[Rfam]
RNA sequence: AGAGCACCAGUGAUGUCACAUCCGUAACUCAUCCUUGCACUAUGAGUUCAGCAGUGAAGAAAACAUUGGGGAAUAUGUAGUCUGAGGUGCUC
Numbered sequence: 001a002g003a004g005c006a007c008c009a010g011u012g013a014u015g016u017c018a019c020a021u022c023c024g025u026a027a028c029u030c031a032u033c034c035u036u037g038c039a040c041u042a043u044g045a046g047u048u049c050a051g052c053a054g055u056g057a058a059g060a061a062a063a064c065a066u067u068g069g070g071g072a073a074u075a076u077g078u079a080g081u082c083u084g085a086g087g088u089g090c091u092c
Stems, first nucleotide, its partner, number of pairs: 002092007

About this RNA
The record is a 92-nucleotide RNA sequence from Zizania palustris, which matches "Small nucleolar RNA snoR26" in Rfam. The organism belongs to Zizania, within Eukaryota. Pairs were carried over by alignment from the consensus structure, which was predicted with WAR.